[Rfam]
RNA: mir-1285 microRNA precursor family
RNA sequence: AUAAGGUCUCACUUUGUUGCCCAGGCUGGCCUCAAACUCCUGGUGUGGGCACCAAAGUAAGACCCUAU
Numbered sequence: 001a002u003a004a005g006g007u008c009u010c011a012c013u014u015u016g017u018u019g020c021c022c023a024g025g026c027u028g029g030c031c032u033c034a035a036a037c038u039c040c041u042g043g044u045g046u047g048g049g050c051a052c053c054a055a056a057g058u059a060a061g062a063c064c065c066u067a068u
Stems, first nucleotide, its partner, number of pairs: 007062003011058004019050005025044001032043003